This 65-nucleotide sequence from Bombyx mori belongs to the Rfam family "mir-2774 microRNA precursor family". On this family, see Liu et al., BMC Genomics 2010: "MicroRNAs of Bombyx mori identified by Solexa sequencing". Gene Ontology terms of the family: RISC complex and miRNA-mediated post-transcriptional gene silencing.

RNA sequence: AUAACAUUCGGAUCGUCGGUCUACCGAGCAAUUUCAUAAGCUCGAUGCAAGAUCUUCCAAAUCGU
Numbered sequence: 001a002u003a004a005c006a007u008u009c010g011g012a013u014c015g016u017c018g019g020u021c022u023a024c025c026g027a028g029c030a031a032u033u034u035c036a037u038a039a040g041c042u043c044g045a046u047g048c049a050a051g052a053u054c055u056u057c058c059a060a061a062u063c064g065u
Stems, first nucleotide, its partner, number of pairs: 004065002010058003015053003020049001022047002025044005